[Rfam]
RNA sequence: UAGAUCCCUAAUUGACUGAAAUAACUGUAUGACUGAUAUAUAUAUAUCAGUCAUACAGUUAUUUCAGUCAAUUAGGGAUCUA
Numbered sequence: 001u002a003g004a005u006c007c008c009u010a011a012u013u014g015a016c017u018g019a020a021a022u023a024a025c026u027g028u029a030u031g032a033c034u035g036a037u038a039u040a041u042a043u044a045u046a047u048c049a050g051u052c053a054u055a056c057a058g059u060u061a062u063u064u065c066a067g068u069c070a071a072u073u074a075g076g077g078a079u080c081u082a
Stems, first nucleotide, its partner, number of pairs: 001082005007076020028055008